[Rfam]
RNA: TPP riboswitch aptamer (THI element)
Organism: Cnuella takakiae
RNA sequence: UUGAAACUUUAGGGGUGCCGAAAGGCUGAGAUGAUACCCUCGAACCUGAUGCAGGUAAUGCUGCCGAAGGGAAAAGUGAAUACAUACUG
Numbered sequence: 001u002u003g004a005a006a007c008u009u010u011a012g013g014g015g016u017g018c019c020g021a022a023a024g025g026c027u028g029a030g031a032u033g034a035u036a037c038c039c040u041c042g043a044a045c046c047u048g049a050u051g052c053a054g055g056u057a058a059u060g061c062u063g064c065c066g067a068a069g070g071g072a073a074a075a076g077u078g079a080a081u082a083c084a085u086a087c088u089g
Stems, first nucleotide, its partner, number of pairs: 006077005011040004016034001017026003045070003051064004